[Rfam]
RNA sequence: ACAGAAGACCGGUCUGUCGCCGCCGGCUAUGCCGGAGGAGGAAAGUCCGGGCAACGCAGAGCAUCCCACUUCCUAACAGAAAGCUGUCCGUGAGGGUGGAGACAAUGCAGAAGAAAAGAACCGCCUCUUCACAAGGGGUAAGGGUGAGAAGGUGAGGUAAGAGCUCACCAGCCGUAUGGUGACAUGCGGGCUGUGCAUCUUGGGAGUUGUAAGAUCAUGUAUACCGGCGUUAAGAGAGUUGCUCGCUCCAGUCGGAGGGUGGAUUGCUAGAGCCCGGCGGUGACGACGGGCGUAGAUAAAUGACAGACGCCUGACAAAGGUACAGAACCCGGCUUACAGGUCUUCUGCCUCU
Numbered sequence: 001a002c003a004g005a006a007g008a009c010c011g012g013u014c015u016g017u018c019g020c021c022g023c024c025g026g027c028u029a030u031g032c033c034g035g036a037g038g039a040g041g042a043a044a045g046u047c048c049g050g051g052c053a054a055c056g057c058a059g060a061g062c063a064u065c066c067c068a069c070u071u072c073c074u075a076a077c078a079g080a081a082a083g084c085u086g087u088c089c090g091u092g093a094g095g096g097u098g099g100a101g102a103c104a105a106u107g108c109a110g111a112a113g114a115a116a117a118g119a120a121c122c123g124c125c126u127c128u129u130c131a132c133a134a135g136g137g138g139u140a141a142g143g144g145u146g147a148g149a150a151g152g153u154g155a156g157g158u159a160a161g162a163g164c165u166c167a168c169c170a171g172c173c174g175u176a177u178g179g180u181g182a183c184a185u186g187c188g189g190g191c192u193g194u195g196c197a198u199c200u201u202g203g204g205a206g207u208u209g210u211a212a213g214a215u216c217a218u219g220u221a222u223a224c225c226g227g228c229g230u231u232a233a234g235a236g237a238g239u240u241g242c243u244c245g246c247u248c249c250a251g252u253c254g255g256a257g258g259g260u261g262g263a264u265u266g267c268u269a270g271a272g273c274c275c276g277g278c279g280g281u282g283a284c285g286a287c288g289g290g291c292g293u294a295g296a297u298a299a300a301u302g303a304c305a306g307a308c309g310c311c312u313g314a315c316a317a318a319g320g321u322a323c324a325g326a327a328c329c330c331g332g333c334u335u336a337c338a339g340g341u342c343u344u345c346u347g348c349c350u351c352u
Stems, first nucleotide, its partner, number of pairs: 002347009011337001012308007020038002023035005043335003047332005052209004059244004064205005069083003073079001084099001086097004100200002105198005121143002123139007151169006171191001172189007213265004224255005236248004272291005278285002
Dot-bracket structure: .(((((((((((((((((.((.(((((...))))).))....[[[.[[[[[((((...[[[[.((((((((.(.....).)))(.((((....)))).)((...(((((...........(((((((((...)))))))..)).......((((((.......)))))).((((((((....))))))).)..))))))))))))))))...((((.......(((((.......((((.]]]]))))..)))))......))))......(((((.((....)).)))))..........)))))))...................]]]]]]]].).))))))))).....
Overview
The family of this 352-nucleotide sequence from Bacteroides sp. CAG:462 is "Bacterial RNase P class A". A search with the family's covariance model found it, with a score of 238 bits. The base pairs follow the family's consensus structure, which is taken from published work. By type it is a ribozyme. Ribonuclease P (RNase P) is a ubiquitous endoribonuclease, found in archaea, bacteria and eukarya as well as chloroplasts and mitochondria.